[Rfam]
RNA sequence: GGAUGAAACCUUGGAGAGACUCUUUUAAAGAGCACCGAAGGGGAAAGUCAUAUAUUUAUGGCGAAACUCUCAGGUAAAAGGACAGGGUACAGGUA
Dot-bracket structure: .......((((((......((((.....)))).(((((..(((...((((((....))))))....))))).))).......)))))).......
Shown here is a 95-nucleotide sequence from Aminipila terrae, a member of the family "Glycine riboswitch aptamer". The organism belongs to Aminipila, within Bacteria.